[Rfam]
RNA sequence: AUGAUGAUACGGGGAGAGUGCGCAACCAGCGUCGCCGAAGGAGCAAGUAGUCGAUUACUAUGAAUCUCUCAGGCAAAAGGACUCGUAUUGGACG
Numbered sequence: 001a002u003g004a005u006g007a008u009a010c011g012g013g014g015a016g017a018g019u020g021c022g023c024a025a026c027c028a029g030c031g032u033c034g035c036c037g038a039a040g041g042a043g044c045a046a047g048u049a050g051u052c053g054a055u056u057a058c059u060a061u062g063a064a065u066c067u068c069u070c071a072g073g074c075a076a077a078a079g080g081a082c083u084c085g086u087a088u089u090g091g092a093c094g
Stems, first nucleotide, its partner, number of pairs: 006089008020032004034074003037070002041068003047061004